[Rfam]
The record is an 80-nucleotide RNA sequence from Cyprinus carpio, which matches "Small nucleolar RNA MBII-202" in Rfam.
The family's RNA type in Rfam is C/D-box small nucleolar RNA.
Rfam 15.1 lists 745 matches to the family in 452 species.
Gene Ontology terms of the family: nucleolus and RNA processing.
A search with the family's covariance model found it, with a score of 63 bits.
RNA sequence: UGAUGACACUUUCUCCGGAAUCUCUGCACACCCUUGAUGACUUUGAACCCUUUUACAGCUGAUGACUGCAAACGUUUAGC
Numbered sequence: 001u002g003a004u005g006a007c008a009c010u011u012u013c014u015c016c017g018g019a020a021u022c023u024c025u026g027c028a029c030a031c032c033c034u035u036g037a038u039g040a041c042u043u044u045g046a047a048c049c050c051u052u053u054u055a056c057a058g059c060u061g062a063u064g065a066c067u068g069c070a071a072a073c074g075u076u077u078a079g080c
Stems, first nucleotide, its partner, number of pairs: 002080001004078003

Pairs were carried over by alignment from the consensus structure, which was predicted with PFOLD.